[Rfam]
RNA sequence: GGUCUCUCUCAGCCAAUCACAGCGCGUUUAGCUGAUACUGGUAACAGCUAAAUGCGAUGUGAUUGGCUGAGAGAGACC
Numbered sequence: 001g002g003u004c005u006c007u008c009u010c011a012g013c014c015a016a017u018c019a020c021a022g023c024g025c026g027u028u029u030a031g032c033u034g035a036u037a038c039u040g041g042u043a044a045c046a047g048c049u050a051a052a053u054g055c056g057a058u059g060u061g062a063u064u065g066g067c068u069g070a071g072a073g074a075g076a077c078c
Stems, first nucleotide, its partner, number of pairs: 004075012017062004023056002028051005
The record is a 78-nucleotide RNA from Microcaecilia unicolor, which matches "mir-980 microRNA precursor family" in Rfam. The family has 8 seed sequences and 121 matches in Rfam 15.1. Pairs were carried over by alignment from the consensus structure, which was predicted with RNAalifold. The match comes from Rfam's covariance-model search (49 bits). Its family is annotated with RISC complex and miRNA-mediated post-transcriptional gene silencing in the Gene Ontology.